[Rfam]
RNA sequence: CCAAAGGCCCUUUUAAGGGCCACCAAAUCUUACAAAGAGCUAACUU
Numbered sequence: 001c002c003a004a005a006g007g008c009c010c011u012u013u014u015a016a017g018g019g020c021c022a023c024c025a026a027a028u029c030u031u032a033c034a035a036a037g038a039g040c041u042a043a044c045u046u
Stems, first nucleotide, its partner, number of pairs: 006021006

A member of the RNA family "Histone 3' UTR stem-loop" from Orchesella cincta, 46 nucleotides long. It is annotated as a cis-regulatory element. Rfam 15.1 lists 44,596 matches to the family in 976 species. Its family is annotated with mRNA 3'-end processing by stem-loop binding and cleavage in the Gene Ontology. A search with the family's covariance model found it, with a score of 39 bits.